[Rfam]
RNA: L31-Firmicutes ribosomal protein leader
RNA sequence: CUAUGACACAAGAUGUCAUGGCGGAAGGAG
Numbered sequence: 001c002u003a004u005g006a007c008a009c010a011a012g013a014u015g016u017c018a019u020g021g022c023g024g025a026a027g028g029a030g
Base pairs, nucleotide, nucleotide: 001021002020003019004018005017006016007015008014